[Rfam]
RNA sequence: ACCCAAAGCCUUUUGUCAGGGUGGCAAUCGAUUUUACAUCGCAUAUCUACAUUGUUGCCUGUUACGUCUUUGGAAGAACAAUGCUAUCCGCCCGUGGUCCUGCUUUCGAGCAGAAUUCUUGUCGUUCUGACUUGAAUUUUGUCCACAUUUACCAAUAGUCUUUAUUGGUUUUUCAGGGUAGUAUCGGAAUCUUAUUGAGUUGGACCUGCUUUGAGACUUUUUAGUCUCUCUUUUAGGCUUGUCCGUAGUCUAGAAGCCGACAUCU
Dot-bracket structure: ..(((((...........((((((((((.(((.....)))..........))))))))))........)))))..........((((((....((((.(.(..................................)....).)))).....(((((((...))))))).......))))))...(((..(((........(((((..((((.((((((....))))))......))))..)))))......)))..)))......